[Rfam]
The record is a 58-nucleotide RNA sequence from Tolypothrix sp. NIES-4075, which matches "Nitrogen stress-induced RNA 1" in Rfam. The base pairs follow the family's consensus structure. Rfam classes the family as a small RNA. Lineage of the source: Bacteria > Bacillati > Cyanobacteriota > Nostocales > Tolypothrix.
RNA sequence: UGGUAGAUGCACCCUAAUUAAAUUACUGCCCUCGGUUUCUGGCUGAGGGCAUUUUUAU
Number, nucleotide and partner (000 for none) at each position: 001u000002g013003g012004u011005a000006g000007a000008u000009g000010c000011a004012c003013c002014c000015u000016a000017a000018u000019u000020a000021a000022a000023u000024u000025a000026c000027u000028g050029c049030c048031c047032u046033c045034g044035g043036u042037u041038u000039c000040u000041g037042g036043c035044u034045g033046a032047g031048g030049g029050c028051a000052u000053u000054u000055u000056u000057a000058u000